Shown here is a 162-nucleotide RNA from Clostridium sp. L2-50, a member of the family "Clostridiales-1 RNA". By type it is a small RNA. The source organism's lineage runs through Bacteria, Bacillati, Bacillota, Clostridia and Clostridium.
RNA sequence: UGAAUAACCCCGGCAAGCAAUUACACAGCAUGCCUGCUAGCAGGCAAAGCUGUGUAAUUAUUUGCCGGGCAAACAGACAUGAGCAUGAAGGACGAAAGUCCGGAAAGCGAAUGGCUGAGGCGAUUUCGGGAGUUCGAAGAACGGAGAAAUCGUAGUUAUUCA
Numbered sequence: 001u002g003a004a005u006a007a008c009c010c011c012g013g014c015a016a017g018c019a020a021u022u023a024c025a026c027a028g029c030a031u032g033c034c035u036g037c038u039a040g041c042a043g044g045c046a047a048a049g050c051u052g053u054g055u056a057a058u059u060a061u062u063u064g065c066c067g068g069g070c071a072a073a074c075a076g077a078c079a080u081g082a083g084c085a086u087g088a089a090g091g092a093c094g095a096a097a098g099u100c101c102g103g104a105a106a107g108c109g110a111a112u113g114g115c116u117g118a119g120g121c122g123a124u125u126u127c128g129g130g131a132g133u134u135c136g137a138a139g140a141a142c143g144g145a146g147a148a149a150u151c152g153u154a155g156u157u158a159u160u161c162a
Stems, first nucleotide, its partner, number of pairs: 001162007010068004016062002019059011031047001032045005074117003078113003083108002086105001090101004121152007132142004